[Rfam]
RNA sequence: UGUGACACCCACUAAAGGGGUUGUUCCCCACGCCGCAGCUACUUUACCAUACUCUGAAUUC
Numbered sequence: 001u002g003u004g005a006c007a008c009c010c011a012c013u014a015a016a017g018g019g020g021u022u023g024u025u026c027c028c029c030a031c032g033c034c035g036c037a038g039c040u041a042c043u044u045u046a047c048c049a050u051a052c053u054c055u056g057a058a059u060u061c
Base pairs, nucleotide, nucleotide: 017045018044019043020042021041023039024038025037027035
Shown here is a 61-nucleotide sequence from Coffea arabica, a member of the family "Plastid-psbN 5UTR RNA".
From the family's description: Plastid psbN is a non-coding RNA (ncRNA) recognised in plastids. It was reported as a conserved 11 stem-loop in the prime untranslated region (5UTR) of psbN genes.
By type it is a cis-regulatory element.
For this family Rfam cites "Retrograde signaling in plants: A critical review focusing on the GUN pathway and beyond" (Richter et al., Plant Commun, 2023).